[Rfam]
This 87-nucleotide sequence from Vagococcus entomophilus belongs to the Rfam family "Bacterial small signal recognition particle RNA". A search with the family's covariance model found it, with a score of 58 bits. The family's consensus secondary structure is taken from published work. Lineage of the source: Bacteria > Bacillati > Bacilli > Lactobacillales > Vagococcus. Rfam links the family to the GO terms signal recognition particle, plasma membrane targeting and SRP-dependent cotranslational protein targeting to membrane, signal sequence recognition. Rfam's curators write: The signal recognition particle (SRP) is a universally conserved ribonucleoprotein involved in the co-translational targeting of proteins to membranes.
RNA sequence: AGGCUAGAGCAAUGGUGAGCUUAUGAAGCGUGUCAGGUCCGGAAGGAAGCAGCACUAAGUAAGUUUUGCCAUGUGCUUGAUUAAAUA
Numbered sequence: 001a002g003g004c005u006a007g008a009g010c011a012a013u014g015g016u017g018a019g020c021u022u023a024u025g026a027a028g029c030g031u032g033u034c035a036g037g038u039c040c041g042g043a044a045g046g047a048a049g050c051a052g053c054a055c056u057a058a059g060u061a062a063g064u065u066u067u068g069c070c071a072u073g074u075g076c077u078u079g080a081u082u083a084a085a086u087a
Base pairs, nucleotide, nucleotide: 005080007078008077009076010073012072013071014070015069016068017067019064020063021062022061023060024059030055031054032053033052038047039046040045